RNA sequence: GGAGGUAACAAGCUUAUGUAUACGGGCAAACAUACAAAAAGAUUUCAUUCUUUUAUACAACCCGUGGGAAGGUCUGAGAAAAGCCGCUAAAUGUCUUUGCUGGACAACCUGUGAAAACGGGGGCAGUGCUACCAGAAAAUAUAACCCUUUUGUUUCUGUAAACCAAUGAUUUUUAUGAUGGGAAUCUUGUGGAGCAGAAGGGAUUAUUGUAACGGUCUGUGGGCGGAAAUGCUAUGAAGUGCAAUACAUGAGACUGGUUUUACCAGUAACUCAAUUCAGACUACUCUGUUUCCUCC
Numbered sequence: 001g002g003a004g005g006u007a008a009c010a011a012g013c014u015u016a017u018g019u020a021u022a023c024g025g026g027c028a029a030a031c032a033u034a035c036a037a038a039a040a041g042a043u044u045u046c047a048u049u050c051u052u053u054u055a056u057a058c059a060a061c062c063c064g065u066g067g068g069a070a071g072g073u074c075u076g077a078g079a080a081a082a083g084c085c086g087c088u089a090a091a092u093g094u095c096u097u098u099g100c101u102g103g104a105c106a107a108c109c110u111g112u113g114a115a116a117a118c119g120g121g122g123g124c125a126g127u128g129c130u131a132c133c134a135g136a137a138a139a140u141a142u143a144a145c146c147c148u149u150u151u152g153u154u155u156c157u158g159u160a161a162a163c164c165a166a167u168g169a170u171u172u173u174u175a176u177g178a179u180g181g182g183a184a185u186c187u188u189g190u191g192g193a194g195c196a197g198a199a200g201g202g203a204u205u206a207u208u209g210u211a212a213c214g215g216u217c218u219g220u221g222g223g224c225g226g227a228a229a230u231g232c233u234a235u236g237a238a239g240u241g242c243a244a245u246a247c248a249u250g251a252g253a254c255u256g257g258u259u260u261u262a263c264c265a266g267u268a269a270c271u272c273a274a275u276u277c278a279g280a281c282u283a284c285u286c287u288g289u290u291u292c293c294u295c296c
Base pairs, nucleotide, nucleotide: 001296002295003294004293008289009288010287013252014251015250016249017248018247019246022065023064024063025062026061037054038053039052040051041050042048074279075278076277077276078275083224084223085222092106093105094104095103096102108121109120110119111118112117123220124219125218126217128216129215130214142206143205144204253267254266255265256264257263
This 296-nucleotide RNA from Rhizopus delemar belongs to the Rfam family "Nuclear RNase P". Ribonuclease P (RNase P) is a ubiquitous endoribonuclease, found in archaea, bacteria and eukarya as well as chloroplasts and mitochondria. NCBI's taxonomy places the organism under Eukaryota, Opisthokonta, Mucorineae, Rhizopodaceae, Rhizopus delemar. Its Rfam clan is "RNaseP clan". A search with the family's covariance model found it, with a score of 131 bits. The family's RNA type in Rfam is ribozyme.